[Rfam]
This 78-nucleotide RNA sequence from Nitratireductor indicus belongs to the Rfam family "Makes More Granules Regulator RNA (mmgR)".
Taxonomically the source falls in Nitratireductor indicus (Bacteria, Hyphomicrobiales, Phyllobacteriaceae, Nitratireductor).
It scores 65 bits against the family's covariance model.
Clan: suhB sRNA clan.
Rfam classes the family as a small RNA.
RNA sequence: GCCUAAUGCCCUUUUGGGCGUUUCCUCCCUAGACUUUAGACCGCGUCGCGAAGCGAUGCGGUCUUUUUUUAUGCAUCC
Dot-bracket structure: .......((((....))))...................(((((((((.......)))))))))...............